RNA sequence: GGUAUUGUUUUAUAUCCACCCCACGAUAAGCCCCGGAAACUUAUUGUGUUACAAGAUAUAUAAGCAGAAA
Numbered sequence: 001g002g003u004a005u006u007g008u009u010u011u012a013u014a015u016c017c018a019c020c021c022c023a024c025g026a027u028a029a030g031c032c033c034c035g036g037a038a039a040c041u042u043a044u045u046g047u048g049u050u051a052c053a054a055g056a057u058a059u060a061u062a063a064g065c066a067g068a069a070a
Base pairs, nucleotide, nucleotide: 006066007065008064009063010062011060022048023047024046025045026044027043028042029041030040

The record is a 70-nucleotide sequence from Staphylococcus aureus, which matches "Ribosomal protein L13 leader" in Rfam. Rfam describes the family as follows. This family is a putative r-protein leader autoregulatory structure found in B. subtilis and other low-GC Gram-positive bacteria. It is located in the 5' untranslated regions of mRNAs encoding the L13-S9 (rplM-rpsI) ribosomal protein operon. NCBI's taxonomy places the organism under Bacteria, Bacilli, Caryophanales, Staphylococcaceae, Staphylococcus aureus. Rfam classes the family as a cis-regulatory leader. Rfam links the family to the GO term regulation of gene expression. Rfam's curators put it in the seed alignment.